[Rfam]
RNA: ASpks TB sRNA
RNA sequence: CUUGAUCGAGCCGAGCCAGAGCGGCUCACCGUCGCCGCGCUCCUGCCCGUAGGUGGCCAGCAGCGCCUGCGCCUC
Numbered sequence: 001c002u003u004g005a006u007c008g009a010g011c012c013g014a015g016c017c018a019g020a021g022c023g024g025c026u027c028a029c030c031g032u033c034g035c036c037g038c039g040c041u042c043c044u045g046c047c048c049g050u051a052g053g054u055g056g057c058c059a060g061c062a063g064c065g066c067c068u069g070c071g072c073c074u075c
Base pairs, nucleotide, nucleotide: 014026015025016024017023033069038065039064043060044059045058047056048055049054
Dot-bracket structure: .............((((.....))))......(....((...(((.(((....))).)))...))...)......